[Rfam]
RNA sequence: AGCACCUAAAAGCGUUUUCUUGCCAGCCCGUUAACUGCUCUUGAAAAUCGUAGAUGUGUGCCAGAGCAAGCUUCCCAACAGCAAGUGACAAGAGUUCUAAUGACUCUUGUCCGUUUACGUUGUGAAUAAGU
Number, nucleotide and partner (000 for none) at each position: 001a000002g061003c060004a059005c058006c056007u000008a000009a000010a000011a000012g051013c050014g049015u047016u046017u045018u044019c043020u000021u000022g038023c037024c000025a036026g000027c000028c000029c000030g000031u000032u000033a000034a000035c000036u025037g023038c022039u000040c000041u000042u000043g019044a018045a017046a016047a015048u000049c014050g013051u012052a000053g000054a000055u000056g006057u000058g005059u004060g003061c002062c000063a000064g000065a000066g000067c000068a000069a000070g000071c000072u000073u125074c124075c000076c122077a121078a120079c119080a000081g000082c000083a116084a115085g114086u113087g112088a110089c109090a108091a107092g000093a105094g104095u103096u102097c000098u000099a000100a000101u000102g096103a095104c094105u093106c000107u091108u090109g089110u088111c000112c087113g086114u085115u084116u083117a000118c000119g079120u078121u077122g076123u000124g074125a073126a000127u000128a000129a000130g000131u000
RNA: Small nucleolar RNA psi28S-3316